[Rfam]
RNA sequence: UGAGCUAAGCAGAAGCCAUCCACUUCUCACCUUACAGCGCGAUUAUGUUGUUAGUAAGGUUAUGGUAAGCUGACUAAAUUAAGUUGUGCUCAUGUACGGGUGGUUUAUGCCAUCCGUUUUUUAUUUUAAUU
Numbered sequence: 001u002g003a004g005c006u007a008a009g010c011a012g013a014a015g016c017c018a019u020c021c022a023c024u025u026c027u028c029a030c031c032u033u034a035c036a037g038c039g040c041g042a043u044u045a046u047g048u049u050g051u052u053a054g055u056a057a058g059g060u061u062a063u064g065g066u067a068a069g070c071u072g073a074c075u076a077a078a079u080u081a082a083g084u085u086g087u088g089c090u091c092a093u094g095u096a097c098g099g100g101u102g103g104u105u106u107a108u109g110c111c112a113u114c115c116g117u118u119u120u121u122u123a124u125u126u127u128a129a130u131u
Stems, first nucleotide, its partner, number of pairs: 011027005029060003039048002096117009

Ribosomal protein L20 leader: a 131-nucleotide RNA sequence from Sporomusa acidovorans. Taxonomically the source falls in Sporomusa acidovorans (Bacteria, Bacillati, Negativicutes, Selenomonadales). Rfam links the family to the GO term regulation of gene expression. The base pairs follow the family's consensus structure, which was predicted with CMfinder. A search with the family's covariance model found it, with a score of 60 bits. It is annotated as a cis-regulatory leader. This family is a putative r-protein leader autoregulatory structure found in B. subtilis and other low-GC Gram-positive bacteria. It is located in the 5' untranslated regions of mRNAs encoding initiation factor 3 followed by ribosomal proteins L35 and L20 (infC-rpmI-rplT). A Rho-independent transcription terminator structure that is probably involved in regulation is included at the 3' end.